[Rfam]
RNA: sul1 RNA
RNA sequence: GUCGGACCCGAGGUGUUGUUUCGGGUGGCUCCGCCGGGCGCCUAUCCCCCGGAAACUC
Numbered sequence: 001g002u003c004g005g006a007c008c009c010g011a012g013g014u015g016u017u018g019u020u021u022c023g024g025g026u027g028g029c030u031c032c033g034c035c036g037g038g039c040g041c042c043u044a045u046c047c048c049c050c051g052g053a054a055a056c057u058c
Stems, first nucleotide, its partner, number of pairs: 006026006013019001034052005